[Rfam]
RNA sequence: AGCAAAUCAAACUAAAUCCGCACACGUAUCGACACGGUAUCCUGGGUGCCCUUUGGGGUUGGAUGCUGGGAUGCGUGGAGGCCCAAC
Numbered sequence: 001a002g003c004a005a006a007u008c009a010a011a012c013u014a015a016a017u018c019c020g021c022a023c024a025c026g027u028a029u030c031g032a033c034a035c036g037g038u039a040u041c042c043u044g045g046g047u048g049c050c051c052u053u054u055g056g057g058g059u060u061g062g063a064u065g066c067u068g069g070g071a072u073g074c075g076u077g078g079a080g081g082c083c084c085a086a087c
Base pairs, nucleotide, nucleotide: 023077024076025075026074027073028072029071030070035068036067037066038065039064040063041062042061048059049058050057051056

The record is an 87-nucleotide sequence from Halopseudomonas pachastrellae, which matches "t44 RNA" in Rfam. For this family Rfam cites "Transcriptome analysis of Escherichia coli using high-density oligonucleotide probe arrays" (Tjaden et al., Nucleic Acids Res, 2002). It scores 77 bits against the family's covariance model. This family consists of a number of bacterial RNA genes of between 135 and 170 bases in length. The t44 gene has been identified in several species of enteric bacteria but homologs have also been identified in Pseudomonas and Coxiella species. The t44 gene is found between the map and rpsB genes in all species in the full alignment apart from Shigella flexneri. The function of this RNA is unknown. Rfam classes the family as a small RNA. The family's consensus secondary structure was predicted with LocARNA. The source organism's lineage runs through Bacteria, Pseudomonadota, Gammaproteobacteria, Pseudomonadaceae and Halopseudomonas.